[Rfam]
RNA sequence: CGUGCUCACGCGCCGAAUCCCAUUGGGAACCGGGGAACCACCGUUUCUGGGGUGAAUCGCGCGUAUGCCGCCGUCCUUCGACGGCUCCCGUGUACGCGCGUAGGAGACCUUCCUGCUCCGAACCCGUCAGCUAACCCGGUAGGCGAGACGGAAGGAAAGG
Numbered sequence: 001c002g003u004g005c006u007c008a009c010g011c012g013c014c015g016a017a018u019c020c021c022a023u024u025g026g027g028a029a030c031c032g033g034g035g036a037a038c039c040a041c042c043g044u045u046u047c048u049g050g051g052g053u054g055a056a057u058c059g060c061g062c063g064u065a066u067g068c069c070g071c072c073g074u075c076c077u078u079c080g081a082c083g084g085c086u087c088c089c090g091u092g093u094a095c096g097c098g099c100g101u102a103g104g105a106g107a108c109c110u111u112c113c114u115g116c117u118c119c120g121a122a123c124c125c126g127u128c129a130g131c132u133a134a135c136c137c138g139g140u141a142g143g144c145g146a147g148a149c150g151g152a153a154g155g156a157a158a159g160g
Stems, first nucleotide, its partner, number of pairs: 011145004018028003029140006039049002050125003058100011103119004
Dot-bracket structure: ..........((((...(((.....)))((((((....((.......))(((.....(((((((((((.....................)))))))))))..((((.........))))...))).........)))))).))))...............

Background
Rfam assigns this 160-nucleotide RNA sequence from Streptomyces actuosus to the family "c-di-AMP riboswitch aptamer (ydaO/yuaA leader)". The match comes from Rfam's covariance-model search (96 bits). Gene Ontology terms of the family: cyclic-di-AMP binding and regulation of gene expression. Rfam describes the family as follows. This family represents a conserved RNA structure found upstream of the ydaO and yuaA genes in Bacillus subtilis and related genes in other bacteria. The ydaO/yuaA element is thought to act as a genetic 'off' switch for the ydaO and yuaA genes in its native state. It is believed that the element may be triggered during osmotic shock leading to activation of ydaO, a predicted amino acid transporter gene, and members of the yuaA-yubG operon which code for KtrA and KtrB K+ transporters.